[Rfam]
This 70-nucleotide sequence from Polaribacter gangjinensis belongs to the Rfam family "Fluoride riboswitch aptamer (crcB RNA motif)". The base pairs follow the family's consensus structure, which is taken from published work. Gene Ontology terms of the family: positive regulation of gene expression and response to fluoride. It scores 49 bits against the family's covariance model. The source organism's lineage runs through Bacteria, Pseudomonadati, Bacteroidota, Flavobacteriaceae and Polaribacter.
RNA sequence: AAAUUGAAAGGAAAUGGUGUACUUCCUUACCCAACCGCUUUUAAAAAAAGCUGAUGACGCCUGAUUAAAU
Numbered sequence: 001a002a003a004u005u006g007a008a009a010g011g012a013a014a015u016g017g018u019g020u021a022c023u024u025c026c027u028u029a030c031c032c033a034a035c036c037g038c039u040u041u042u043a044a045a046a047a048a049a050g051c052u053g054a055u056g057a058c059g060c061c062u063g064a065u066u067a068a069a070u
Stems, first nucleotide, its partner, number of pairs: 010026004016061005037051004